RNA sequence: CAUGACGUGAGGAGUGCUUUACGCCUCUUUCAGGGUCGAAACAAGGAAAGACUCCUGAAUGAGUUCUUCU
Numbered sequence: 001c002a003u004g005a006c007g008u009g010a011g012g013a014g015u016g017c018u019u020u021a022c023g024c025c026u027c028u029u030u031c032a033g034g035g036u037c038g039a040a041a042c043a044a045g046g047a048a049a050g051a052c053u054c055c056u057g058a059a060u061g062a063g064u065u066c067u068u069c070u
Stems, first nucleotide, its partner, number of pairs: 023065001025063003030058005035052003
Dot-bracket structure: ......................(.(((..((((((((............))).)))))..))).).....
RNA: Cyano-1 RNA
Organism: Synechococcus sp. CC9311